A member of the RNA family "Bacterial small signal recognition particle RNA" from Reinekea forsetii, 97 nucleotides long. About the family: The signal recognition particle (SRP) is a universally conserved ribonucleoprotein involved in the co-translational targeting of proteins to membranes. NCBI's taxonomy places the organism under Bacteria, Pseudomonadota, Oceanospirillales, Saccharospirillaceae, Reinekea. The family's RNA type in Rfam is non-coding RNA gene. The family is grouped with related families in Rfam's "SRP clan". The base pairs follow the family's consensus structure, which is taken from published work.
[Rfam]
RNA sequence: UGCCGGUCCCCUCGCAACGAGAGGACGUUAACUCCGCCAGGCCCGGAAGGGAGCAACGGUAGCGUCUGAUUCGUGUGCCGGGGUGUGGCUGGUGGGA
Number, nucleotide and partner (000 for none) at each position: 001u000002g000003c000004c091005g090006g089007u088008c087009c000010c083011c082012u081013c080014g079015c075016a000017a074018c073019g072020a071021g070022a000023g067024g066025a065026c064027g063028u062029u061030a000031a000032c000033u000034c059035c058036g057037c000038c000039a000040g000041g000042c051043c050044c049045g000046g000047a000048a000049g044050g043051g042052a000053g000054c000055a000056a000057c036058g035059g034060u000061a029062g028063c027064g026065u025066c024067u023068g000069a000070u021071u020072c019073g018074u017075g015076u000077g000078c000079c014080g013081g012082g011083g010084u000085g000086u000087g008088g007089c006090u005091g004092g000093u000094g000095g000096g000097a000